[Rfam]
RNA sequence: UAUUCCUUUAAAACAGUCCUGUGAGGCUGUCAAGGAGACGGAUUAAAAACAUGCACCAUGAUACUUAAUUGUGCUAUAUUUUGCUGAAUCUCCUUGUUUCCAAGGAGAUCUUUUUAUU
Numbered sequence: 001u002a003u004u005c006c007u008u009u010a011a012a013a014c015a016g017u018c019c020u021g022u023g024a025g026g027c028u029g030u031c032a033a034g035g036a037g038a039c040g041g042a043u044u045a046a047a048a049a050c051a052u053g054c055a056c057c058a059u060g061a062u063a064c065u066u067a068a069u070u071g072u073g074c075u076a077u078a079u080u081u082u083g084c085u086g087a088a089u090c091u092c093c094u095u096g097u098u099u100c101c102a103a104g105g106a107g108a109u110c111u112u113u114u115u116a117u118u
Stems, first nucleotide, its partner, number of pairs: 003037006013030006049081001051079003055075001057073006086111001088109009